[Rfam]
RNA sequence: UUGCCUUAAACUAAUGAGUAAGGAAAACAAAGCGGGUGGUGGGAGCUGCCCGCCGCGCUGUAACUAAUUUUGCGCAAGAAUUUAUGGAGGGGUUAUAGGCUGGCCGAGCGUUGACGCUGCUUACUUUGCAGAACUCGUUCGAGCGGGCCUCCCAACCC
Numbered sequence: 001u002u003g004c005c006u007u008a009a010a011c012u013a014a015u016g017a018g019u020a021a022g023g024a025a026a027a028c029a030a031a032g033c034g035g036g037u038g039g040u041g042g043g044a045g046c047u048g049c050c051c052g053c054c055g056c057g058c059u060g061u062a063a064c065u066a067a068u069u070u071u072g073c074g075c076a077a078g079a080a081u082u083u084a085u086g087g088a089g090g091g092g093u094u095a096u097a098g099g100c101u102g103g104c105c106g107a108g109c110g111u112u113g114a115c116g117c118u119g120c121u122u123a124c125u126u127u128g129c130a131g132a133a134c135u136c137g138u139u140c141g142a143g144c145g146g147g148c149c150u151c152c153c154a155a156c157c158c
Stems, first nucleotide, its partner, number of pairs: 004023005032053008055075004090158005097150005103144001105141002108138003117131004
RNA: U12 minor spliceosomal RNA
Organism: Vanilla planifolia